[Rfam]
RNA: Glycine riboswitch aptamer
RNA sequence: CGGGCGCGCGCGGGAGAGUUUCUGGUUUCGACCAGGACGCCGAAGGAGCAACCGCCCCGGAAUCUCUCAGGUCAAAGGACCGCGUGCGCUGA
Numbered sequence: 001c002g003g004g005c006g007c008g009c010g011c012g013g014g015a016g017a018g019u020u021u022c023u024g025g026u027u028u029c030g031a032c033c034a035g036g037a038c039g040c041c042g043a044a045g046g047a048g049c050a051a052c053c054g055c056c057c058c059g060g061a062a063u064c065u066c067u068c069a070g071g072u073c074a075a076a077g078g079a080c081c082g083c084g085u086g087c088g089c090u091g092a
Stems, first nucleotide, its partner, number of pairs: 006087008020037004039072003042068002046066003052060002